[Rfam]
RNA sequence: UUGUCUGUAUCGCUGAAUCCCUGUAUGACAGGGAGCGGGGGAACCAACCGGAUGUCUGCGGACAUUCAUGGGGUGAAUCCCGGGGCAUGCGAAGGCGCGGAUGAUGCGCCAUGUCCCGAGGUAGGGCGACUCUCUCGCCCGAAUCCGACAGCUAACCUCGUAAGCGUACCGAGAGAGGCAAC
Numbered sequence: 001u002u003g004u005c006u007g008u009a010u011c012g013c014u015g016a017a018u019c020c021c022u023g024u025a026u027g028a029c030a031g032g033g034a035g036c037g038g039g040g041g042a043a044c045c046a047a048c049c050g051g052a053u054g055u056c057u058g059c060g061g062a063c064a065u066u067c068a069u070g071g072g073g074u075g076a077a078u079c080c081c082g083g084g085g086c087a088u089g090c091g092a093a094g095g096c097g098c099g100g101a102u103g104a105u106g107c108g109c110c111a112u113g114u115c116c117c118g119a120g121g122u123a124g125g126g127c128g129a130c131u132c133u134c135u136c137g138c139c140c141g142a143a144u145c146c147g148a149c150a151g152c153u154a155a156c157c158u159c160g161u162a163a164g165c166g167u168a169c170c171g172a173g174a175g176a177g178g179c180a181a182c
Stems, first nucleotide, its partner, number of pairs: 011166004018034007035161006045070002071146003079121002124140004
A member of the RNA family "c-di-AMP riboswitch aptamer (ydaO/yuaA leader)" from Paenibacillus dendritiformis, 182 nucleotides long. It scores 90 bits against the family's covariance model. The source organism's lineage runs through Bacteria, Bacillati, Paenibacillaceae, Paenibacillus and Paenibacillus dendritiformis. Rfam describes the family as follows. This family represents a conserved RNA structure found upstream of the ydaO and yuaA genes in Bacillus subtilis and related genes in other bacteria.